This 141-nucleotide sequence from Synaphobranchus kaupii belongs to the Rfam family "Small nucleolar RNA SNORA8". Gene Ontology terms of the family: RNA processing and nucleolus. ACA8 is a member of the H/ACA class of snoRNA that guide the sites of modification of uridines to pseudouridines. The family's RNA type in Rfam is H/ACA-box small nucleolar RNA.

[Rfam]
RNA sequence: AGCACUGUAUGGUAUCUGCAGACAGCUGUUUCCCCAAGCUGGCCUGUUCAUUACGCAGUGCGAGAGUGACUCGGCGUAUGGCAUCGUUGGUCUCCAUGCUUCUCAGUGCUUUGGAGUCCUGGUAUUUGUGCUGAGACAAGC
Numbered sequence: 001a002g003c004a005c006u007g008u009a010u011g012g013u014a015u016c017u018g019c020a021g022a023c024a025g026c027u028g029u030u031u032c033c034c035c036a037a038g039c040u041g042g043c044c045u046g047u048u049c050a051u052u053a054c055g056c057a058g059u060g061c062g063a064g065a066g067u068g069a070c071u072c073g074g075c076g077u078a079u080g081g082c083a084u085c086g087u088u089g090g091u092c093u094c095c096a097u098g099c100u101u102c103u104c105a106g107u108g109c110u111u112u113g114g115a116g117u118c119c120u121g122g123u124a125u126u127u128g129u130g131c132u133g134a135g136a137c138a139a140g141c
Stems, first nucleotide, its partner, number of pairs: 002061006018047004023042001024040004065129001068126002071122004080110005